The family of this 92-nucleotide RNA from Megalops atlanticus is "mir-1388 microRNA precursor family". Its family is annotated with miRNA-mediated post-transcriptional gene silencing and RISC complex in the Gene Ontology. Taxonomically the source falls in Megalops (Eukaryota, Eumetazoa, Neopterygii, Elopiformes).

RNA sequence: GCCAGAGUGGUGUUUCCAGGACUGUCCUACCUGAGAAUGGUGAUAUUUGUGGUCAAUCUCAGGUUCGUCAGCCCAUGAAAUGCUGUCUCACU
Number, nucleotide and partner (000 for none) at each position: 001g000002c000003c000004a000005g089006a088007g087008u085009g084010g083011u082012g081013u080014u079015u078016c077017c000018a000019g074020g073021a000022c071023u070024g069025u000026c067027c000028u000029a064030c063031c062032u061033g060034a059035g058036a057037a000038u055039g054040g000041u000042g000043a000044u000045a000046u000047u000048u000049g000050u000051g000052g000053u000054c039055a038056a000057u036058c035059u034060c033061a032062g031063g030064u029065u000066c000067g026068u000069c024070a023071g022072c000073c020074c019075a000076u000077g016078a015079a014080a013081u012082g011083c010084u009085g008086u000087c007088u006089c005090a000091c000092u000